[Rfam]
RNA sequence: AGUGAGGAUAGAGGUGCAAAAACCAUCAGUAUACAAACAGAGGAGCAUGAGGUCCGGUGACGUUUGUGGAAAGGGGGAUUUGCCGAAGCGGCAAGAAGCUCAUGCUCUUUACCGCUGGUUCUGCAUUGAACAAAUGCCGGACUGUCAUAUAGGAAACUAUAUGGAGGGCUAUCUGACGC
Numbered sequence: 001a002g003u004g005a006g007g008a009u010a011g012a013g014g015u016g017c018a019a020a021a022a023c024c025a026u027c028a029g030u031a032u033a034c035a036a037a038c039a040g041a042g043g044a045g046c047a048u049g050a051g052g053u054c055c056g057g058u059g060a061c062g063u064u065u066g067u068g069g070a071a072a073g074g075g076g077g078a079u080u081u082g083c084c085g086a087a088g089c090g091g092c093a094a095g096a097a098g099c100u101c102a103u104g105c106u107c108u109u110u111a112c113c114g115c116u117g118g119u120u121c122u123g124c125a126u127u128g129a130a131c132a133a134a135u136g137c138c139g140g141a142c143u144g145u146c147a148u149a150u151a152g153g154a155a156a157c158u159a160u161a162u163g164g165a166g167g168g169c170u171a172u173c174u175g176a177c178g179c
Stems, first nucleotide, its partner, number of pairs: 006174006016083005023076002032068007087116005093110003097106002117143005123137005145164007
Shown here is a 179-nucleotide RNA from Planomicrobium sp. CPCC 101110, a member of the family "Lysine riboswitch aptamer". The organism belongs to Planomicrobium, within Bacteria. Pairs were carried over by alignment from the consensus structure, which is taken from published work. From the family's description: Riboswitches are metabolite binding domains within certain messenger RNAs that serve as precision sensors for their corresponding targets. Allosteric rearrangement of mRNA structure is mediated by ligand binding, and this results in modulation of gene expression. This family includes riboswitches that sense lysine in a number of genes involved in lysine metabolism, including lysC.